[Rfam]
RNA sequence: CUGUCCCCACAACGGCUUCCUGGCGUGGGUGCGAUAACAUCCAAUGGAGCG
Numbered sequence: 001c002u003g004u005c006c007c008c009a010c011a012a013c014g015g016c017u018u019c020c021u022g023g024c025g026u027g028g029g030u031g032c033g034a035u036a037a038c039a040u041c042c043a044a045u046g047g048a049g050c051g
Base pairs, nucleotide, nucleotide: 005031006029007028008027009026010025013022014021015050016049017048019047020046